[Rfam]
RNA sequence: AAUUACCAUCGUGAUGUGGUUAUUCUGGUCAUAACUUAUUGACUGGAGGGGUAAUAAUUUUAUUGCCCUUUUAUUUUU
Numbered sequence: 001a002a003u004u005a006c007c008a009u010c011g012u013g014a015u016g017u018g019g020u021u022a023u024u025c026u027g028g029u030c031a032u033a034a035c036u037u038a039u040u041g042a043c044u045g046g047a048g049g050g051g052u053a054a055u056a057a058u059u060u061u062a063u064u065g066c067c068c069u070u071u072u073a074u075u076u077u078u
Stems, first nucleotide, its partner, number of pairs: 025046007047070010